[Rfam]
RNA sequence: UCGGGUCUUUUUGCGGUCUGGGCUUGCUGUCCCCUCCGCGGCACUCAGGAAGCCCUUACCCCAAAAAGCAUCCG
Numbered sequence: 001u002c003g004g005g006u007c008u009u010u011u012u013g014c015g016g017u018c019u020g021g022g023c024u025u026g027c028u029g030u031c032c033c034c035u036c037c038g039c040g041g042c043a044c045u046c047a048g049g050a051a052g053c054c055c056u057u058a059c060c061c062c063a064a065a066a067a068g069c070a071u072c073c074g
Stems, first nucleotide, its partner, number of pairs: 007068007015060003020055004025050001027048002
mir-129 microRNA precursor family: a 74-nucleotide RNA sequence from Strigops habroptila. Lineage of the source: Eukaryota > Euteleostomi > Dinosauria > Neoaves > Strigops.